[Rfam]
RNA sequence: CCGCUGAAAAACAUAACCCAUAAAUGCUAGCUGUACCAGGAACCACCUCCUUAGCCUGCGUAAUCUCCCUUACGCAGGCUUAUUU
Numbered sequence: 001c002c003g004c005u006g007a008a009a010a011a012c013a014u015a016a017c018c019c020a021u022a023a024a025u026g027c028u029a030g031c032u033g034u035a036c037c038a039g040g041a042a043c044c045a046c047c048u049c050c051u052u053a054g055c056c057u058g059c060g061u062a063a064u065c066u067c068c069c070u071u072a073c074g075c076a077g078g079c080u081u082a083u084u085u
Base pairs, nucleotide, nucleotide: 038051039050040049041048053080054079055078056077057076058075059074060073061072062071063070

A member of the RNA family "CyaR/Rye RNA" from Enterobacter sp. 638, 85 nucleotides long. The family's RNA type in Rfam is small RNA. Taxonomically the source falls in Enterobacter (Bacteria, Pseudomonadati, Pseudomonadota, Enterobacteriaceae). A reference for the family is Wassarman et al. (2001), "Identification of novel small RNAs using comparative genomics and microarrays", Genes Dev. Rfam's curators put it in the seed alignment. About the family: This sRNA was originally identified in a large scale screen of E. coli.